This 95-nucleotide RNA from Nicotiana attenuata belongs to the Rfam family "MIR6152 microRNA precursor family". The match comes from Rfam's covariance-model search (89 bits). Lineage of the source: Eukaryota > Embryophyta > asterids > Nicotianeae > Nicotiana. Its family is annotated with RISC complex and miRNA-mediated post-transcriptional gene silencing in the Gene Ontology. The family has 2 seed sequences and 5,807 matches in Rfam 15.1.

RNA sequence: UAGACAGAUUAUUGUAAUUUACUGUAUUCACAGCGUGAAACAGGGGAUUACACUUUUUUAAACGGAAAGUGAAUCAAUUAACAUAAUAGACUCCU
Numbered sequence: 001u002a003g004a005c006a007g008a009u010u011a012u013u014g015u016a017a018u019u020u021a022c023u024g025u026a027u028u029c030a031c032a033g034c035g036u037g038a039a040a041c042a043g044g045g046g047a048u049u050a051c052a053c054u055u056u057u058u059u060a061a062a063c064g065g066a067a068a069g070u071g072a073a074u075c076a077a078u079u080a081a082c083a084u085a086a087u088a089g090a091c092u093c094c095u
Base pairs, nucleotide, nucleotide: 003093004092009089010088011087012086013085014084015083018080021078023076024075026074027073028072029071030070031069034064035063036062038058039057040056042054043053